Shown here is a 110-nucleotide sequence from Staphylococcus epidermidis, a member of the family "TPP riboswitch aptamer (THI element)". The family's consensus secondary structure is taken from published work. Rfam's curators put it in the seed alignment. The source organism's lineage runs through Bacteria, Bacillati, Bacilli, Caryophanales and Staphylococcus epidermidis.
Nucleotides: 110
Base pairs, nucleotide, nucleotide: 006098007097008096009095010094011060012059013058014057017031018030019029020028021027038053039052040051041050042049066091067090068089069088072085073084074083075082
Number, partner (000 for none) and nucleotide at each position: 001000u002000u003000u004000a005000a006098c007097c008096a009095c010094u011060g012059g013058a014057a015000g016000u017031g018030c019029c020028u021027u022000u023000g024000u025000u026000u027021a028020a029019g030018g031017c032000u033000g034000a035000g036000a037000g038053u039052a040051a041050a042049g043000a044000a045000c046000u047000g048000a049042c050041u051040u052039u053038a054000u055000a056000a057014u058013u059012c060011c061000u062000g063000g064000a065000a066091c067090c068089u069088g070000a071000u072085c073084c074083a075082g076000u077000u078000c079000a080000u081000a082075c083074u084073g085072g086000c087000g088069u089068a090067g091066g092000g093000a094010a095009g096008u097007g098006g099000c100000g101000a102000c103000g104000c105000u106000c107000a108000a109000u110000u